[Rfam]
RNA sequence: CCUCCUCUUCUUGGCGAGGUUCGGGUGUGUGGUCCCAGUUCCCGUAAUGAAUGGAGGCAGAGGGAGAGAUCCCCGACCCCCUUGGCGUCAUUCCUUCCAUGCUGACGGUUUCCAGUCCACCGGUUCUAUUCCCAAGCACUGGGACAUGG
Numbered sequence: 001c002c003u004c005c006u007c008u009u010c011u012u013g014g015c016g017a018g019g020u021u022c023g024g025g026u027g028u029g030u031g032g033u034c035c036c037a038g039u040u041c042c043c044g045u046a047a048u049g050a051a052u053g054g055a056g057g058c059a060g061a062g063g064g065a066g067a068g069a070u071c072c073c074c075g076a077c078c079c080c081c082u083u084g085g086c087g088u089c090a091u092u093c094c095u096u097c098c099a100u101g102c103u104g105a106c107g108g109u110u111u112c113c114a115g116u117c118c119a120c121c122g123g124u125u126c127u128a129u130u131c132c133c134a135a136g137c138a139c140u141g142g143g144a145c146a147u148g149g
Stems, first nucleotide, its partner, number of pairs: 001057005015044002018041002023036003083141003087137002102123003107118002

Notes:
A member of the RNA family "Small nucleolar RNA SNORA57" from Myotis brandtii, 149 nucleotides long. The organism belongs to Myotis, within Eukaryota. From the family's description: U99 belongs to the H/ACA class of snoRNAs which are thought to guide the sites of modification of uridines to pseudouridines, the target for this family is unknown. Rfam classes the family as an H/ACA-box small nucleolar RNA. The family has 26 seed sequences and 1,736 matches in Rfam 15.1.